Shown here is a 104-nucleotide RNA sequence, a member of the family "Fluoride riboswitch aptamer (crcB RNA motif)". The match comes from Rfam's covariance-model search (35 bits).
RNA sequence: GCGGCCUGCGGAGAUGGCAUGCCUCCCUGCGGUCGUUCCCGGCGCGUUGCGCGCGGUGCGGCCCUCAACCGCCGGUUGGCCCGGCUGAUGAUGCCUGCGUGUUC
Dot-bracket structure: .........[[[[..(((((..]]]]............................................((((.......)))).....))))).........